[Rfam]
RNA sequence: GAUGUCAAGAAGAAACAGCCGUUUCUCACCUUACAGCUAUUAAUGCUAGUUUGGUCAUGAAUUUUAUUACAUUUGAUUUUGGUAAUAGAGGACGGCUUAAAACCGUCCUUUUUUAUUUAU
Numbered sequence: 001g002a003u004g005u006c007a008a009g010a011a012g013a014a015a016c017a018g019c020c021g022u023u024u025c026u027c028a029c030c031u032u033a034c035a036g037c038u039a040u041u042a043a044u045g046c047u048a049g050u051u052u053g054g055u056c057a058u059g060a061a062u063u064u065u066a067u068u069a070c071a072u073u074u075g076a077u078u079u080u081g082g083u084a085a086u087a088g089a090g091g092a093c094g095g096c097u098u099a100a101a102a103c104c105g106u107c108c109u110u111u112u113u114u115a116u117u118u119a120u
Stems, first nucleotide, its partner, number of pairs: 011026006028055003033050002036046002091107005097101001
The record is a 120-nucleotide RNA from Clostridium perfringens, which matches "Ribosomal protein L20 leader" in Rfam. It is one of the family's seed sequences. NCBI's taxonomy places the organism under Bacteria, Clostridia, Eubacteriales, Clostridiaceae, Clostridium perfringens. Rfam links the family to the GO term regulation of gene expression.